The record is a 49-nucleotide RNA from Anisodus acutangulus, which matches "Exoribonuclease-resistant RNA (xrRNA) plant-infecting virus (class 3)" in Rfam. Taxonomically the source falls in Anisodus (Eukaryota, Streptophytina, asterids, Solanoideae). The family's RNA type in Rfam is cis-regulatory element. Rfam links the family to the GO term viral RNA genome replication. On this family, see Steckelberg et al., mBio 2018: "Exoribonuclease-Resistant RNAs Exist within both Coding and Noncoding Subgenomic RNAs".

RNA sequence: AACCUAGCUGCCUAAGGGGUUGCAAAGAGUGGAAGGUUAGUCCUUAGCA
Numbered sequence: 001a002a003c004c005u006a007g008c009u010g011c012c013u014a015a016g017g018g019g020u021u022g023c024a025a026a027g028a029g030u031g032g033a034a035g036g037u038u039a040g041u042c043c044u045u046a047g048c049a
Base pairs, nucleotide, nucleotide: 001037003035008032009031012027013026016045017044018043019042